[Rfam]
RNA sequence: UUCUUAUCAAGAGAGAUGGAGGGACUGGCCCGAUGAGAUCUCGGCAACGGAACUUAGUGAUUAAGUUGCUGUGCCAAAUCCAGCAAGCAAAGGCUUGAUAGAUAAGAG
Numbered sequence: 001u002u003c004u005u006a007u008c009a010a011g012a013g014a015g016a017u018g019g020a021g022g023g024a025c026u027g028g029c030c031c032g033a034u035g036a037g038a039u040c041u042c043g044g045c046a047a048c049g050g051a052a053c054u055u056a057g058u059g060a061u062u063a064a065g066u067u068g069c070u071g072u073g074c075c076a077a078a079u080c081c082a083g084c085a086a087g088c089a090a091a092g093g094c095u096u097g098a099u100a101g102a103u104a105a106g107a108g
Stems, first nucleotide, its partner, number of pairs: 001108008013042005021031003025083004043075004048071002051067004079100001084097005